This 203-nucleotide sequence from Streptomyces cinnamoneus belongs to the Rfam family "Streptomyces RNA 1601".
It is annotated as a small RNA.
Taxonomically the source falls in Streptomyces (Bacteria, Actinomycetota, Kitasatosporales, Streptomycetaceae).
From the family's description: Identified by deep sequencing of transcriptome at the end of exponential growth phase.
It scores 144 bits against the family's covariance model.

RNA sequence: AUCGACCGGCUGGGUGCUCCUGUGCCCGGCCCACAAGUGGAGCUCCGUUCUCCCACCUCGCCGACCACAGGUCGGCAGGUCUCCGGUCAGGUAGCGGCCAUCGUUCCGUACGGACGAUGGAGCUGCCCGAUGCGCCCCGCGGCUCGCCGUGGCGGUGUUCCGGUUUCAUGGAGCCCCGCCUGUGUCCCGUCGGGGCAUUUUUU
Numbered sequence: 001a002u003c004g005a006c007c008g009g010c011u012g013g014g015u016g017c018u019c020c021u022g023u024g025c026c027c028g029g030c031c032c033a034c035a036a037g038u039g040g041a042g043c044u045c046c047g048u049u050c051u052c053c054c055a056c057c058u059c060g061c062c063g064a065c066c067a068c069a070g071g072u073c074g075g076c077a078g079g080u081c082u083c084c085g086g087u088c089a090g091g092u093a094g095c096g097g098c099c100a101u102c103g104u105u106c107c108g109u110a111c112g113g114a115c116g117a118u119g120g121a122g123c124u125g126c127c128c129g130a131u132g133c134g135c136c137c138c139g140c141g142g143c144u145c146g147c148c149g150u151g152g153c154g155g156u157g158u159u160c161c162g163g164u165u166u167c168a169u170g171g172a173g174c175c176c177c178g179c180c181u182g183u184g185u186c187c188c189g190u191c192g193g194g195g196c197a198u199u200u201u202u203u
Base pairs, nucleotide, nucleotide: 004088005087006086007085008084009083012027013026028081029080030079031078035058037056038055039054040053041051042050060076061075062074063073064072065071066070090127091126092125093124094123098120099119100118101117102116103115104114105113134196135195136194137193138192139191140189141188142187148184149183150182151180152179153178154177155176157174158173159172160171161170